[Rfam]
RNA sequence: ACGCCGCCCAGUGCGGCGCACAUGGCUCCAACGGGCCAGUGGCGGGGGUGGUGCCGUGUCGGCGCAGCACCACCCCCGCGCC
Numbered sequence: 001a002c003g004c005c006g007c008c009c010a011g012u013g014c015g016g017c018g019c020a021c022a023u024g025g026c027u028c029c030a031a032c033g034g035g036c037c038a039g040u041g042g043c044g045g046g047g048g049u050g051g052u053g054c055c056g057u058g059u060c061g062g063c064g065c066a067g068c069a070c071c072a073c074c075c076c077c078g079c080g081c082c
Base pairs, nucleotide, nucleotide: 002018003017004016005015006014007013020040021039025037026035027034028033042079043078044077045076046075047074048073049072050071051070052069053068054067056065057064058063
RNA: Streptomyces RNA 6106
Organism: Streptomyces sp. MMG1533